[Rfam]
RNA sequence: GGCGCGCCAGGGGAUGGGGUGCCCCCUAUAACCGCCGAAAAGGCUGAUGACUCCUGCUCUAUG
Numbered sequence: 001g002g003c004g005c006g007c008c009a010g011g012g013g014a015u016g017g018g019g020u021g022c023c024c025c026c027u028a029u030a031a032c033c034g035c036c037g038a039a040a041a042g043g044c045u046g047a048u049g050a051c052u053c054c055u056g057c058u059c060u061a062u063g
Base pairs, nucleotide, nucleotide: 010026011025012024013023016054017053018052019051020050034044035043036042